[Rfam]
RNA sequence: GGGGGUACCCGGUUCUUCUUCACGCCCUCACGUCGGAUGGUCACCUUAGUGUUAGCUGAGAGCACACGCUUUACGACUGGUACUGUUUAAAGGUGAUUUUGAUGGGGUGAUGAGCCGCCCACGAAGCUGAACUAGAAACUUAGCCCACUUUAACAAAGAGGGGCGGGCGGAGGCGCGUUUGAGCCCUGGGGACGGGGCGAGCGAGGGCACCCCUAAGGAGUAUU
Dot-bracket structure: ....((((...............(((((((..((....(((((.(((((((...(.((...............)).)...)))).....))).))))).....))..)))....((((((.(........................................).))))))............((((((....))))))......))))...........)))).
RNA: lysM-Actino RNA